[Rfam]
RNA: mir-190 microRNA precursor family
RNA sequence: UUGGCCGUUAGAUAUGUUUGAUAUUCUUGGUUGUCUUUUAUCAUUUCAACCAAGAAUCAGACAUAUACUAAUGGUCUU
Numbered sequence: 001u002u003g004g005c006c007g008u009u010a011g012a013u014a015u016g017u018u019u020g021a022u023a024u025u026c027u028u029g030g031u032u033g034u035c036u037u038u039u040a041u042c043a044u045u046u047c048a049a050c051c052a053a054g055a056a057u058c059a060g061a062c063a064u065a066u067a068c069u070a071a072u073g074g075u076c077u078u
Base pairs, nucleotide, nucleotide: 005074006073007072008071009070012066013065014064015063016062017061018060019059020058021057022056024054025053029051030050031049032048033047